[Rfam]
RNA: TPP riboswitch aptamer (THI element)
RNA sequence: AAACGCUACUAGGGGAGCCAGUUGGCUGAGAUGAUUAAAUUCAGACCCUUACAACCUGAUUUGGUUAAUACCAACGUAGGAAAGUAGUUUAAUCUAAAG
Numbered sequence: 001a002a003a004c005g006c007u008a009c010u011a012g013g014g015g016a017g018c019c020a021g022u023u024g025g026c027u028g029a030g031a032u033g034a035u036u037a038a039a040u041u042c043a044g045a046c047c048c049u050u051a052c053a054a055c056c057u058g059a060u061u062u063g064g065u066u067a068a069u070a071c072c073a074a075c076g077u078a079g080g081a082a083a084g085u086a087g088u089u090u091a092a093u094c095u096a097a098a099g
Base pairs, nucleotide, nucleotide: 006087007086008085009084010083011049012048013047014046017026018025019024033042034041055080056079057078058077061074062073063072064071